[Rfam]
RNA sequence: CAAACGGCCCUUUUCAGGGCCACUAAUUUGAAACGAGGAACAUCUU
Numbered sequence: 001c002a003a004a005c006g007g008c009c010c011u012u013u014u015c016a017g018g019g020c021c022a023c024u025a026a027u028u029u030g031a032a033a034c035g036a037g038g039a040a041c042a043u044c045u046u
Stems, first nucleotide, its partner, number of pairs: 006021006

The record is a 46-nucleotide sequence from Harpegnathos saltator, which matches "Histone 3' UTR stem-loop" in Rfam.